[Rfam]
RNA sequence: AUGUAUGUAUGUAUGUAUGUGUGCAUGUGCAUGUGCAUGUAUGCAUAUUGCAUGUAUAUAUUAUGCAUACA
Numbered sequence: 001a002u003g004u005a006u007g008u009a010u011g012u013a014u015g016u017a018u019g020u021g022u023g024c025a026u027g028u029g030c031a032u033g034u035g036c037a038u039g040u041a042u043g044c045a046u047a048u049u050g051c052a053u054g055u056a057u058a059u060a061u062u063a064u065g066c067a068u069a070c071a
Stems, first nucleotide, its partner, number of pairs: 006067005013061002017059005025053005031046005

The family of this 71-nucleotide RNA sequence from Mus musculus is "mir-297 microRNA precursor family". Gene Ontology terms of the family: cellular response to leukemia inhibitory factor, cellular response to estrogen stimulus and RISC complex. It is one of the family's seed sequences.